[Rfam]
RNA sequence: GCAGGUGAAUGCAACGUCAAGCGAUGGGCGUUGCGCUCCAUAUUGUCUGACUUCCAAUUUGAGUUACUGCAUAGCACCUUUCGAUGCUUGAUGUGCCGGCUUAACGCCGGCUUUU
Numbered sequence: 001g002c003a004g005g006u007g008a009a010u011g012c013a014a015c016g017u018c019a020a021g022c023g024a025u026g027g028g029c030g031u032u033g034c035g036c037u038c039c040a041u042a043u044u045g046u047c048u049g050a051c052u053u054c055c056a057a058u059u060u061g062a063g064u065u066a067c068u069g070c071a072u073a074g075c076a077c078c079u080u081u082c083g084a085u086g087c088u089u090g091a092u093g094u095g096c097c098g099g100c101u102u103a104a105c106g107c108c109g110g111c112u113u114u115u
Stems, first nucleotide, its partner, number of pairs: 001046004007038002010035009061087001063085003068076003095111006
Rfam assigns this 115-nucleotide sequence from Duffyella gerundensis to the family "Fumarate/nitrate reductase regulator sRNA". Taxonomically the source falls in Duffyella (Bacteria, Pseudomonadati, Gammaproteobacteria, Enterobacterales). For this family Rfam cites "Translational regulation of gene expression by an anaerobically induced small non-coding RNA in Escherichia coli" (Boysen et al., J Biol Chem, 2010). The base pairs follow the family's consensus structure, which is taken from published work.